Annotation: Shown here is a 101-nucleotide RNA sequence from Oryza brachyantha, a member of the family "Small nucleolar RNA R44/J54/Z268 family". By type it is a C/D-box small nucleolar RNA. Taxonomically the source falls in Oryza (Eukaryota, Tracheophyta, Liliopsida, Poales). Its Rfam clan is "SNORD74 clan". The base pairs follow the family's consensus structure, which was predicted with PFOLD.

RNA sequence: CAUGCAGGUGAUGAGAGCAAGACAGGGACAUCAGCACCCUCUCUGUUUCUGGGAUGGGAAUGAUCGACUGAAGUCUAUAAUGGGAAUCUCUCUGAUGCUUU
Numbered sequence: 001c002a003u004g005c006a007g008g009u010g011a012u013g014a015g016a017g018c019a020a021g022a023c024a025g026g027g028a029c030a031u032c033a034g035c036a037c038c039c040u041c042u043c044u045g046u047u048u049c050u051g052g053g054a055u056g057g058g059a060a061u062g063a064u065c066g067a068c069u070g071a072a073g074u075c076u077a078u079a080a081u082g083g084g085a086a087u088c089u090c091u092c093u094g095a096u097g098c099u100u101u
Stems, first nucleotide, its partner, number of pairs: 002100001004098003